[Rfam]
This 78-nucleotide sequence from Triplophysa tibetana belongs to the Rfam family "mir-19 microRNA precursor family". Lineage of the source: Eukaryota > Gnathostomata > Teleostei > Cypriniphysae > Triplophysa. The family is grouped with related families in Rfam's "mir-19 clan".
RNA sequence: CGGCCUGGUUAGUUUUGCUGGUUUGCAGUCAGCGUUCGUACAGUUGCUGUGCAAAUCCAUGCAAAACUGAUCAUAACG
Numbered sequence: 001c002g003g004c005c006u007g008g009u010u011a012g013u014u015u016u017g018c019u020g021g022u023u024u025g026c027a028g029u030c031a032g033c034g035u036u037c038g039u040a041c042a043g044u045u046g047c048u049g050u051g052c053a054a055a056u057c058c059a060u061g062c063a064a065a066a067c068u069g070a071u072c073a074u075a076a077c078g
Base pairs, nucleotide, nucleotide: 006073007072008071009070010069011068012067013066014065015064016063017062018061020058021057022055023054024053025052026051027050031048032047033046